[Rfam]
RNA sequence: GAUGAAUAAACCCUUCGAGCCGUCCCGGCCUAACUUUCAAAAGAAACAUGGCAGACGGCCGGUCAGGGUGUCGCUGGAAACGGCGGCGCCUCCCGUUUUUGGAAAGGAGGGGUAUGAGCGCUUAC
Numbered sequence: 001g002a003u004g005a006a007u008a009a010a011c012c013c014u015u016c017g018a019g020c021c022g023u024c025c026c027g028g029c030c031u032a033a034c035u036u037u038c039a040a041a042a043g044a045a046a047c048a049u050g051g052c053a054g055a056c057g058g059c060c061g062g063u064c065a066g067g068g069u070g071u072c073g074c075u076g077g078a079a080a081c082g083g084c085g086g087c088g089c090c091u092c093c094c095g096u097u098u099u100u101g102g103a104a105a106g107g108a109g110g111g112g113u114a115u116g117a118g119c120g121c122u123u124a125c
Stems, first nucleotide, its partner, number of pairs: 011111006019059006028052003035046003066091011092102002